[Rfam]
RNA sequence: AUUGUUCUAACCUCUGCCCUGCAGGUGCUGAACAUGCUUCACCUGUGAUGAAAGGGCACAGAGGAAGUGGCUAUUUCUACUCAGUGCUCAGAAUAGUAGGCACUAAGAAUGGUGUAUAACCUGACAUUC
Numbered sequence: 001a002u003u004g005u006u007c008u009a010a011c012c013u014c015u016g017c018c019c020u021g022c023a024g025g026u027g028c029u030g031a032a033c034a035u036g037c038u039u040c041a042c043c044u045g046u047g048a049u050g051a052a053a054g055g056g057c058a059c060a061g062a063g064g065a066a067g068u069g070g071c072u073a074u075u076u077c078u079a080c081u082c083a084g085u086g087c088u089c090a091g092a093a094u095a096g097u098a099g100g101c102a103c104u105a106a107g108a109a110u111g112g113u114g115u116a117u118a119a120c121c122u123g124a125c126a127u128u129c
Base pairs, nucleotide, nucleotide: 003058004057005056006055007054008053021046022045023044024043069121070120077112078111079110080107081106085102086101087100088099090097

A member of the RNA family "Small nucleolar RNA SNORA43" from Pipistrellus kuhlii, 129 nucleotides long. Taxonomically the source falls in Pipistrellus (Eukaryota, Opisthokonta, Deuterostomia, Vespertilionidae). The family's consensus secondary structure was predicted with RNAfold. About the family: ACA43 is a member of the H/ACA class of snoRNA that guide the sites of modification of uridines to pseudouridines. Gene Ontology terms of the family: RNA processing and nucleolus.